Potassium channel RNA editing signal: a 114-nucleotide sequence. Rfam's curators put it in the seed alignment. The base pairs follow the family's consensus structure, which is taken from published work. For this family Rfam cites "Control of human potassium channel inactivation by editing of a small mRNA hairpin" (Bhalla et al., Nat Struct Mol Biol, 2004). This family represents a group of sequences related to the human potassium channel Kv1.1 hairpin element which directs the efficient modification of an adenosine to inosine by an adenosine deaminase acting on RNA (ADAR).
RNA sequence: GUGGGCUAUGGGGACAUGCACCCCAUCACCAUCGGGGGCAAGAUCGUGGGGUCUCUGUGUGCCAUCGCGGGGGUGCUGACCAUCGCUCUGCCCGUGCCCGUCAUAGUCUCCAAU
Numbered sequence: 001g002u003g004g005g006c007u008a009u010g011g012g013g014a015c016a017u018g019c020a021c022c023c024c025a026u027c028a029c030c031a032u033c034g035g036g037g038g039c040a041a042g043a044u045c046g047u048g049g050g051g052u053c054u055c056u057g058u059g060u061g062c063c064a065u066c067g068c069g070g071g072g073g074u075g076c077u078g079a080c081c082a083u084c085g086c087u088c089u090g091c092c093c094g095u096g097c098c099c100g101u102c103a104u105a106g107u108c109u110c111c112a113a114u
Stems, first nucleotide, its partner, number of pairs: 001114002004111002008107002011104001013102003018097004037077004049063002